[Rfam]
RNA sequence: AACCACAGAAUGGUUUGGCGCUUUCAGGUGAUUUGUGCUCUUGAUUAUUUGUAAGCGUAUAGUAUGAU
Dot-bracket structure: ..(((...((...)))))((((..(((((((((.........)))))))))..))))...........

Annotation
Rfam assigns this 68-nucleotide RNA from Prosthecochloris aestuarii to the family "Chlorobi-RRM RNA". The organism belongs to Prosthecochloris aestuarii, within Bacteria. The match comes from Rfam's covariance-model search (47 bits). Rfam classes the family as a cis-regulatory element.